[Rfam]
The record is a 68-nucleotide RNA, which matches "Fluoride riboswitch aptamer (crcB RNA motif)" in Rfam.
RNA sequence: GCUUCAUCGGGCGAUGGAGUCCGCCUGCCCCAACCGCUGGGUUUCCAGCUGAUGACUCCUUCUCCAGC
Number, nucleotide and partner (000 for none) at each position: 001g000002c000003u000004u000005c000006a000007u000008c000009g000010g025011g024012c023013g022014a000015u000016g059017g058018a057019g056020u055021c054022c013023g012024c011025c010026u000027g000028c000029c000030c000031c000032a000033a000034c000035c000036g049037c048038u047039g046040g000041g000042u000043u000044u000045c000046c039047a038048g037049c036050u000051g000052a000053u000054g021055a020056c019057u018058c017059c016060u000061u000062c000063u000064c000065c000066a000067g000068c000